[Rfam]
RNA sequence: GGGGCUGUAGCUCAGUUGGUAGAGCGCUUCGUUCGCAUCGAAGAGGUCGGGGUUUCGACUACCCUCAGCUCCA
Numbered sequence: 001g002g003g004g005c006u007g008u009a010g011c012u013c014a015g016u017u018g019g020u021a022g023a024g025c026g027c028u029u030c031g032u033u034c035g036c037a038u039c040g041a042a043g044a045g046g047u048c049g050g051g052g053u054u055u056c057g058a059c060u061a062c063c064c065u066c067a068g069c070u071c072c073a
Stems, first nucleotide, its partner, number of pairs: 001072007010025004027043005049065005

The record is a 73-nucleotide sequence from Bifidobacterium coryneforme, which matches "tRNA" in Rfam.